[Rfam]
A member of the RNA family "TPP riboswitch aptamer (THI element)" from Cupriavidus agavae, 102 nucleotides long. It scores 68 bits against the family's covariance model. From the family's description: Vitamin B(1) in its active form thiamin pyrophosphate (TPP) is an essential coenzyme that is synthesised by coupling of pyrimidine and thiazole moieties in bacteria. Taxonomically the source falls in Cupriavidus (Bacteria, Pseudomonadati, Pseudomonadota, Burkholderiales).

RNA sequence: UGGAUGAAACAGGGGUGCCGUCCGGAUGGGCCGGGCGGCUGAGAGAGUCCCUUCGAACCCGAUCCGGCUAGUACCGGCGUGGGAAGUUUCACAGUAGAACCG
Numbered sequence: 001u002g003g004a005u006g007a008a009a010c011a012g013g014g015g016u017g018c019c020g021u022c023c024g025g026a027u028g029g030g031c032c033g034g035g036c037g038g039c040u041g042a043g044a045g046a047g048u049c050c051c052u053u054c055g056a057a058c059c060c061g062a063u064c065c066g067g068c069u070a071g072u073a074c075c076g077g078c079g080u081g082g083g084a085a086g087u088u089u090c091a092c093a094g095u096a097g098a099a100c101c102g
Stems, first nucleotide, its partner, number of pairs: 006090005011052004016046001017039009058083004064077004